[Rfam]
RNA sequence: CUCUUAUUCAGAGUGGCGGAGGUACAUAGGACCUGUGAAACCACGGCAACCCCGUUGAAGGAAGGUGCCAGCCUGAGCGAAAUUUUCGAACAAUAAGGG
Numbered sequence: 001c002u003c004u005u006a007u008u009c010a011g012a013g014u015g016g017c018g019g020a021g022g023u024a025c026a027u028a029g030g031a032c033c034u035g036u037g038a039a040a041c042c043a044c045g046g047c048a049a050c051c052c053c054g055u056u057g058a059a060g061g062a063a064g065g066u067g068c069c070a071g072c073c074u075g076a077g078c079g080a081a082a083u084u085u086u087c088g089a090a091c092a093a094u095a096a097g098g099g
Base pairs, nucleotide, nucleotide: 001099002098003097004096005095006094007093008092013044014043015042016041021033022032023031027077030074045069046068047067048066050065051064052061053060078088079087080086081085

Shown here is a 99-nucleotide RNA sequence from Lachnospiraceae bacterium OF09-33XD, a member of the family "SAM riboswitch aptamer (S box leader)".